[Rfam]
RNA: U1 spliceosomal RNA
Organism: Ceuthmochares aereus
RNA sequence: AUACUUACCUGGCAGGGGAGACACCAUGAUCAGGCAGGUAGUUUUCCCAGGGUGAAGCUCAUCCCUUGCACUCCAGGUGUGCUAACCCCUAUGAUUUCCCCAAAUGCGGGAAAAUCAACUGCAUCAUUUUUGGUAGUGGGAGACUGUGUUUGCAACUUUUUUUUU
Numbered sequence: 001a002u003a004c005u006u007a008c009c010u011g012g013c014a015g016g017g018g019a020g021a022c023a024c025c026a027u028g029a030u031c032a033g034g035c036a037g038g039u040a041g042u043u044u045u046c047c048c049a050g051g052g053u054g055a056a057g058c059u060c061a062u063c064c065c066u067u068g069c070a071c072u073c074c075a076g077g078u079g080u081g082c083u084a085a086c087c088c089c090u091a092u093g094a095u096u097u098c099c100c101c102a103a104a105u106g107c108g109g110g111a112a113a114a115u116c117a118a119c120u121g122c123a124u125c126a127u128u129u130u131u132g133g134u135a136g137u138g139g140g141a142g143a144c145u146g147u148g149u150u151u152g153c154a155a156c157u158u159u160u161u162u163u164u165u
Stems, first nucleotide, its partner, number of pairs: 012122004016048006023042002026039002049090004054086001056083003060079004092117003095113003099109002138164006146156002148153001